[Rfam]
The record is a 125-nucleotide RNA from Spermophilus dauricus, which matches "Small nucleolar RNA SNORA1" in Rfam. ACA1 is a member of the H/ACA class of snoRNA that guide the sites of modification of uridines to pseudouridines. It scores 78 bits against the family's covariance model. It is annotated as an H/ACA-box small nucleolar RNA.
RNA sequence: AGCUCAUUCUAGAUGAGAAUGGGCACUGUUGAUCAGUGUCCAAAAUAGAUCAAUGUGGCUAAAUUGACACAGGUUAUGCAUCCAUCACAUUAUAUGUAUGGCAGUGAUAAUAUUUUGCUUAAGCU
Numbered sequence: 001a002g003c004u005c006a007u008u009c010u011a012g013a014u015g016a017g018a019a020u021g022g023g024c025a026c027u028g029u030u031g032a033u034c035a036g037u038g039u040c041c042a043a044a045a046u047a048g049a050u051c052a053a054u055g056u057g058g059c060u061a062a063a064u065u066g067a068c069a070c071a072g073g074u075u076a077u078g079c080a081u082c083c084a085u086c087a088c089a090u091u092a093u094a095u096g097u098a099u100g101g102c103a104g105u106g107a108u109a110a111u112a113u114u115u116u117g118c119u120u121a122a123g124c125u
Stems, first nucleotide, its partner, number of pairs: 002059001003057001005055003020042007071125002084108005